[Rfam]
This 387-nucleotide RNA sequence from Flavisolibacter ginsenosidimutans belongs to the Rfam family "Bacterial RNase P class A". A reference for the family is Brown (1999), "The Ribonuclease P Database", Nucleic Acids Res.
RNA sequence: ACUGCAAGCCGCGUCAUCGUGUCCGCAAUGCGGGCAAGGAAAGUCCGGACAGCACAGAGCAACGCACCACCUAACGGGUGGGUGUUCAUCUUAGGAUGAACAACAGACAGUGCCACAGAAAAUAACCGCUCCGGUUAAACGGGGCAAGGGUGAAAACGCGGUGUAAGAGACCGCGAACUUUUUUGGCAACAAAACAGUUGGGUAAACCUUGCGUGCUGAAAUGCCAAAUAUGUUCCGCUUUACCGGCUGCUCGCCGGUGCUCCGCAAAACGGACGGCGGAACGGGUAGGCAGAUAGAGGCCGGCAGAAAUGCCGGUCCCAGAUAAAUGAUGGCGCUUCAACAGCGAUUGUUGAAGAACAAAAUCCGGCUUACAGGCUUGCAGUUUUU
Numbered sequence: 001a002c003u004g005c006a007a008g009c010c011g012c013g014u015c016a017u018c019g020u021g022u023c024c025g026c027a028a029u030g031c032g033g034g035c036a037a038g039g040a041a042a043g044u045c046c047g048g049a050c051a052g053c054a055c056a057g058a059g060c061a062a063c064g065c066a067c068c069a070c071c072u073a074a075c076g077g078g079u080g081g082g083u084g085u086u087c088a089u090c091u092u093a094g095g096a097u098g099a100a101c102a103a104c105a106g107a108c109a110g111u112g113c114c115a116c117a118g119a120a121a122a123u124a125a126c127c128g129c130u131c132c133g134g135u136u137a138a139a140c141g142g143g144g145c146a147a148g149g150g151u152g153a154a155a156a157c158g159c160g161g162u163g164u165a166a167g168a169g170a171c172c173g174c175g176a177a178c179u180u181u182u183u184u185g186g187c188a189a190c191a192a193a194a195c196a197g198u199u200g201g202g203u204a205a206a207c208c209u210u211g212c213g214u215g216c217u218g219a220a221a222u223g224c225c226a227a228a229u230a231u232g233u234u235c236c237g238c239u240u241u242a243c244c245g246g247c248u249g250c251u252c253g254c255c256g257g258u259g260c261u262c263c264g265c266a267a268a269a270c271g272g273a274c275g276g277c278g279g280a281a282c283g284g285g286u287a288g289g290c291a292g293a294u295a296g297a298g299g300c301c302g303g304c305a306g307a308a309a310u311g312c313c314g315g316u317c318c319c320a321g322a323u324a325a326a327u328g329a330u331g332g333c334g335c336u337u338c339a340a341c342a343g344c345g346a347u348u349g350u351u352g353a354a355g356a357a358c359a360a361a362a363u364c365c366g367g368c369u370u371a372c373a374g375g376c377u378u379g380c381a382g383u384u385u386u387u
Base pairs, nucleotide, nucleotide: 001383002382003381004380005379006378007377008376009375010374011372012334013333014332015331016330017329018328020036021035022034023033024032025031026030041370042369043368045367046366047365048364049363050218051217052216053215062214063213064212065211066210067081068080069079070078071077082104083102084101085100086099087098088097089096090095105209106208110207111206112203113202114201126149127148128145129144130143131142132141133140157175158174159173160172161171162170177198178197179196181194182193183192184191185190222291223290224289225288232282233281234280235279236278237277238276239275298317299316300315301314302313303312304311305310
Rfam's curators write: Ribonuclease P (RNase P) is a ubiquitous endoribonuclease, found in archaea, bacteria and eukarya as well as chloroplasts and mitochondria. A search with the family's covariance model found it, with a score of 262 bits.